Nucleotides: 086
Stems, first nucleotide, its partner, number of pairs: 002085001004083004
Number, partner (000 for none) and nucleotide at each position: 001000u002085g003000a004083g005082g006081c007080c008000u009000a010000u011000g012000a013000u014000g015000a016000u017000c018000a019000a020000c021000u022000a023000a024000u025000a026000u027000a028000u029000u030000g031000c032000c033000u034000g035000c036000a037000u038000u039000g040000c041000u042000u043000g044000a045000u046000u047000c048000a049000g050000c051000u052000g053000u054000a055000u056000g057000a058000u059000a060000a061000g062000a063000a064000u065000c066000u067000u068000c069000u070000u071000u072000u073000a074000u075000u076000c077000u078000g079000a080007g081006g082005c083004u084000g085002c086000c